The family of this 139-nucleotide RNA from Chloroceryle aenea is "Small nucleolar RNA SNORA5". Its Rfam clan is "SNORA5 clan". Pairs were carried over by alignment from the consensus structure, which was predicted with RNAfold. A search with the family's covariance model found it, with a score of 81 bits. It is annotated as an H/ACA-box small nucleolar RNA.
RNA sequence: UGCAGCCCUGUCAAAUUCAGUCCCUGCCUCCUCCGUGGUGGGGACUGGCCAGCCGGCUGCCACAGCAGCUUCUGUGGUGCAUGAGCCCCAUGUCCCCUUCCCGUGGGACACCGGGGGUGAAAUCACAUCACGGACAGGG
Numbered sequence: 001u002g003c004a005g006c007c008c009u010g011u012c013a014a015a016u017u018c019a020g021u022c023c024c025u026g027c028c029u030c031c032u033c034c035g036u037g038g039u040g041g042g043g044a045c046u047g048g049c050c051a052g053c054c055g056g057c058u059g060c061c062a063c064a065g066c067a068g069c070u071u072c073u074g075u076g077g078u079g080c081a082u083g084a085g086c087c088c089c090a091u092g093u094c095c096c097c098u099u100c101c102c103g104u105g106g107g108a109c110a111c112c113g114g115g116g117g118u119g120a121a122a123u124c125a126c127a128u129c130a131c132g133g134a135c136a137g138g139g
Stems, first nucleotide, its partner, number of pairs: 002060004018047011074131006086117003091114001
ACA5 is a member of the H/ACA class of snoRNA that guide the sites of modification of uridines to pseudouridines.